Shown here is a 36-nucleotide RNA sequence, a member of the family "Iron response element I".

RNA sequence: CGGGUUCCUGCGUCAACAGUGCUUGGACGGAACCGG
Numbered sequence: 001c002g003g004g005u006u007c008c009u010g011c012g013u014c015a016a017c018a019g020u021g022c023u024u025g026g027a028c029g030g031a032a033c034c035g036g
Base pairs, nucleotide, nucleotide: 001036003034004033005032006031007030008029010028013026014025015024016023017021
Notes:
The family's RNA type in Rfam is cis-regulatory element. Rfam links the family to the GO term response to iron ion. The literature on the family includes a 2006 paper in Science by Walden et al., "Structure of dual function iron regulatory protein 1 complexed with ferritin IRE-RNA".